Small nucleolar RNA Z43: a 104-nucleotide RNA from Helianthus annuus. The organism belongs to Helianthus, within Eukaryota. Rfam links the family to the GO terms RNA processing and nucleolus. The match comes from Rfam's covariance-model search (81 bits).

[Rfam]
RNA sequence: GGAAAUUGAUGACUCCAUGUGAUAAGGUCUCGUUCGUCGUAAUGAUAUGAUGAACUCACACCUUGCCGACCAUCCUGUUAUAUCACCACCCAUAAACUGAAUCC
Dot-bracket structure: (((...........................................(.(.........)....).....................................)))